Rfam assigns this 123-nucleotide RNA to the family "Hepatitis C virus J7880 RNA". On this family, see Mauger et al., Proc Natl Acad Sci U S A 2015: "Functionally conserved architecture of hepatitis C virus RNA genomes". Pairs were carried over by alignment from the consensus structure, which was predicted with RNAfold. By type it is a cis-regulatory element.
[Rfam]
RNA sequence: GUAAAGCUGCGAGCGUCCGGCGUAAAGGCAAAGCUCCUCAGCAUUGAGGAAGCGUGCGACCUCACACCAGCACACUCAGCCCGCUCCAAAUUCGGAUACGGCGCCAAGGACGUUCGCAGCCAU
Numbered sequence: 001g002u003a004a005a006g007c008u009g010c011g012a013g014c015g016u017c018c019g020g021c022g023u024a025a026a027g028g029c030a031a032a033g034c035u036c037c038u039c040a041g042c043a044u045u046g047a048g049g050a051a052g053c054g055u056g057c058g059a060c061c062u063c064a065c066a067c068c069a070g071c072a073c074a075c076u077c078a079g080c081c082c083g084c085u086c087c088a089a090a091u092u093c094g095g096a097u098a099c100g101g102c103g104c105c106a107a108g109g110a111c112g113u114u115c116g117c118a119g120c121c122a123u
Base pairs, nucleotide, nucleotide: 006120007119008118009117010116012114013113014112015111016110017109018108022065023064025062028057029056035050036049037048038047039046068103071100074097076095077094078092079091